[Rfam]
Nucleotides: 192
Base pairs, nucleotide, nucleotide: 006187007186008185009184010183011182017085018084019083020082021081022080024078025077033070034069035068036067037066038065039064089119090118091117092116093115094114095113096112098110099109100108120147121146124143125142126141127140129138130137150176151175152174153173154172155171156170157169158168
Number, partner (000 for none) and nucleotide at each position: 001000c002000g003000g004000u005000g006187a007186g008185g009184u010183a011182g012000a013000g014000g015000u016000c017085g018084c019083g020082a021081c022080u023000u024078u025077u026000a027000a028000u029000a030000g031000u032000a033070g034069g035068a036067c037066g038065g039064a040000c041000g042000a043000g044000g045000u046000g047000c048000a049000a050000a051000g052000a053000a054000c055000a056000c057000c058000g059000a060000a061000g062000a063000c064039u065038c066037c067036g068035u069034u070033u071000g072000a073000a074000a075000g076000g077025a078024a079000u080022a081021g082020u083019c084018g085017c086000c087000g088000a089119a090118g091117u092116c093115a094114a095113a096112u097000c098110a099109u100108u101000u102000u103000c104000u105000u106000u107000g108100a109099a110098u111000u112096a113095u114094u115093u116092g117091g118090c119089u120147g121146g122000g123000g124143c125142u126141g127140u128000c129138u130137c131000c132000a133000a134000a135000u136000a137130g138129g139000a140127a141126c142125a143124g144000a145000a146121c147120u148000g149000u150176c151175a152174c153173g154172u155171u156170u157169g158168u159000u160000c161000u162000u163000a164000c165000c166000a167000g168158a169157c170156a171155a172154a173153c174152g175151u176150g177000u178000u179000g180000u181000g182011c183010u184009a185008u186007c187006u188000u189000u190000c191000g192000g